[Rfam]
RNA sequence: UAAUGGUAAUGAAAAGAGAGCUAUGCGCUAACAUACCUCUCUGAUGUAGAGCCGUUACUAACGGUGACAAAAAUUAAUAUUUUUGAAAU
Numbered sequence: 001u002a003a004u005g006g007u008a009a010u011g012a013a014a015a016g017a018g019a020g021c022u023a024u025g026c027g028c029u030a031a032c033a034u035a036c037c038u039c040u041c042u043g044a045u046g047u048a049g050a051g052c053c054g055u056u057a058c059u060a061a062c063g064g065u066g067a068c069a070a071a072a073a074u075u076a077a078u079a080u081u082u083u084u085g086a087a088a089u
Stems, first nucleotide, its partner, number of pairs: 022035004051065006

Record summary: Shown here is an 89-nucleotide sequence from Enterococcus faecalis, a member of the family "RNA anti-toxin A". Rfam classes the family as an antitoxin RNA. A search with the family's covariance model found it, with a score of 74 bits. The source organism's lineage runs through Bacteria, Bacilli, Enterococcaceae, Enterococcus and Enterococcus faecalis. Rfam 15.1 lists 190 matches to the family in 120 species.